[Rfam]
RNA: sodF sRNA
Organism: Streptomyces laurentii
RNA sequence: ACGUCCUGCUCGUGAUCGUCUUUUCACCCUUCACCGGGCAGGCGGUGAAAGGAGGAAACCCCCGUGAUGACGUGAAUCACGGGGGUUCCUC
Numbered sequence: 001a002c003g004u005c006c007u008g009c010u011c012g013u014g015a016u017c018g019u020c021u022u023u024u025c026a027c028c029c030u031u032c033a034c035c036g037g038g039c040a041g042g043c044g045g046u047g048a049a050a051g052g053a054g055g056a057a058a059c060c061c062c063c064g065u066g067a068u069g070a071c072g073u074g075a076a077u078c079a080c081g082g083g084g085g086u087u088c089c090u091c
Stems, first nucleotide, its partner, number of pairs: 002044002005042007012034004018028001052091005058086011